Notes:
The family of this 100-nucleotide sequence is "SAM riboswitch aptamer (S box leader)". The base pairs follow the family's consensus structure, which is taken from published work. A reference for the family is Grundy and Henkin (1998), "The S box regulon: a new global transcription termination control system for methionine and cysteine biosynthesis genes in gram-positive bacteria", Mol Microbiol.
[Rfam]
RNA sequence: UUCUUAUCAAGAGAAGCAGAGGGACUGGCCCAAUGAAGCUUCAGCAACCAACUUUUUGUCAGGUGCUAAAUCCAGAAGACCGUUGAGUCGAAGAUGAGAA
Numbered sequence: 001u002u003c004u005u006a007u008c009a010a011g012a013g014a015a016g017c018a019g020a021g022g023g024a025c026u027g028g029c030c031c032a033a034u035g036a037a038g039c040u041u042c043a044g045c046a047a048c049c050a051a052c053u054u055u056u057u058g059u060c061a062g063g064u065g066c067u068a069a070a071u072c073c074a075g076a077a078g079a080c081c082g083u084u085g086a087g088u089c090g091a092a093g094a095u096g097a098g099a100a
Stems, first nucleotide, its partner, number of pairs: 001100008013042005021031003025075004043067004048063002051059002071092001078089003

Gene Ontology term of the family: regulation of gene expression. The sequence is in the family's curated seed alignment.